[Rfam]
This 125-nucleotide RNA sequence from Heterocephalus glaber belongs to the Rfam family "Small nucleolar RNA SNORA1". Rfam 15.1 lists 1,282 matches to the family in 515 species. About the family: ACA1 is a member of the H/ACA class of snoRNA that guide the sites of modification of uridines to pseudouridines. NCBI's taxonomy places the organism under Eukaryota, Opisthokonta, Sarcopterygii, Amniota, Heterocephalus. By type it is an H/ACA-box small nucleolar RNA.

RNA sequence: UGCCUCAUUCUACAUUAGAGUGGGCACUGUUGAUUGAUGUUCAGGAUUGGUUAGUGUGGCUAAAAUGGAGACACAGCUCAUGGUUCCAUCACAGUUAGAAUGCAGUACUGAAGCCUGUAACAUUU
Dot-bracket structure: .(((.(((............((((((...........))))))..........))).)))............((((..........((..((............))..))....)))).......
Numbered sequence: 001u002g003c004c005u006c007a008u009u010c011u012a013c014a015u016u017a018g019a020g021u022g023g024g025c026a027c028u029g030u031u032g033a034u035u036g037a038u039g040u041u042c043a044g045g046a047u048u049g050g051u052u053a054g055u056g057u058g059g060c061u062a063a064a065a066u067g068g069a070g071a072c073a074c075a076g077c078u079c080a081u082g083g084u085u086c087c088a089u090c091a092c093a094g095u096u097a098g099a100a101u102g103c104a105g106u107a108c109u110g111a112a113g114c115c116u117g118u119a120a121c122a123u124u125u
Stems, first nucleotide, its partner, number of pairs: 002060003006056003021043006073118004087110002091106002